[Rfam]
RNA sequence: GGCAUACGAUGAAGUGGGAGAUUGCUGCGAAUUAAGAUGCAGGUAACUUCUAUGGAGAAUGUCCGAUUCUAGAAACCGGGCGACAA
Numbered sequence: 001g002g003c004a005u006a007c008g009a010u011g012a013a014g015u016g017g018g019a020g021a022u023u024g025c026u027g028c029g030a031a032u033u034a035a036g037a038u039g040c041a042g043g044u045a046a047c048u049u050c051u052a053u054g055g056a057g058a059a060u061g062u063c064c065g066a067u068u069c070u071a072g073a074a075a076c077c078g079g080g081c082g083a084c085a086a
Stems, first nucleotide, its partner, number of pairs: 014053003018050003025042005060085004067080003